[Rfam]
RNA sequence: AGCUUUGCGCACUGGCAGUAUCGUAGCCAAUGAGUUUAUCCGAGGUGCGAUUAUUGCUAAUUGAAAAAACGAAGGAACUGACAUUCACGUAAAUUGUAAGAAACUAAAUGCAACGUAAGAUGAAGACAACUGUAGACAGA
Numbered sequence: 001a002g003c004u005u006u007g008c009g010c011a012c013u014g015g016c017a018g019u020a021u022c023g024u025a026g027c028c029a030a031u032g033a034g035u036u037u038a039u040c041c042g043a044g045g046u047g048c049g050a051u052u053a054u055u056g057c058u059a060a061u062u063g064a065a066a067a068a069a070c071g072a073a074g075g076a077a078c079u080g081a082c083a084u085u086c087a088c089g090u091a092a093a094u095u096g097u098a099a100g101a102a103a104c105u106a107a108a109u110g111c112a113a114c115g116u117a118a119g120a121u122g123a124a125g126a127c128a129a130c131u132g133u134a135g136a137c138a139g140a
Stems, first nucleotide, its partner, number of pairs: 020051005026046003034040001087116003090112001093109002097106002130139003
RNA: U4 spliceosomal RNA